Annotation:
The family of this 113-nucleotide sequence from Arcobacter nitrofigilis is "purD RNA motif". Taxonomically the source falls in Arcobacter nitrofigilis (Bacteria, Campylobacterota, Campylobacterales, Arcobacter). By type it is a cis-regulatory element. The base pairs follow the family's consensus structure, which is taken from published work. Its family is annotated with regulation of gene expression in the Gene Ontology.
[Rfam]
RNA sequence: GUAACGAUAUGGUGUGCAGCGUUUGCUUUUAGUAUUUCUGCUCCUAAAAUAUUAGUUCUUAUGUGCUAGAGUUGGCUUUUAGGGCCGGUUUGAUGGUUAACGGCUACUUGGAU
Number, nucleotide and partner (000 for none) at each position: 001g000002u000003a057004a056005c000006g053007a052008u051009a050010u049011g000012g000013u000014g000015u000016g000017c000018a042019g041020c040021g039022u000023u000024u034025g033026c032027u000028u000029u000030u000031a000032g026033u025034a024035u000036u000037u000038c000039u021040g020041c019042u018043c000044c000045u000046a000047a000048a000049a010050u009051a008052u007053u006054a000055g000056u004057u003058c000059u000060u000061a000062u000063g000064u000065g000066c000067u000068a000069g000070a000071g000072u088073u087074g086075g085076c084077u083078u082079u000080u000081a000082g078083g077084g076085c075086c074087g073088g072089u000090u000091u000092g000093a000094u000095g000096g000097u000098u000099a000100a000101c000102g000103g000104c000105u000106a000107c000108u000109u000110g000111g000112a000113u000